[Rfam]
RNA sequence: GAAGUUCUUGCCUCAAGAGUGUUUGAACGGAACUCC
Numbered sequence: 001g002a003a004g005u006u007c008u009u010g011c012c013u014c015a016a017g018a019g020u021g022u023u024u025g026a027a028c029g030g031a032a033c034u035c036c
Stems, first nucleotide, its partner, number of pairs: 001036001003034006010028001013026004
Notes: The record is a 36-nucleotide RNA sequence from Amphiprion ocellaris, which matches "Iron response element I" in Rfam. By type it is a cis-regulatory element. A search with the family's covariance model found it, with a score of 34 bits. The base pairs follow the family's consensus structure, which is taken from published work. The source organism's lineage runs through Eukaryota, Chordata, Osteoglossocephalai, Clupeocephala and Amphiprion. Gene Ontology term of the family: response to iron ion.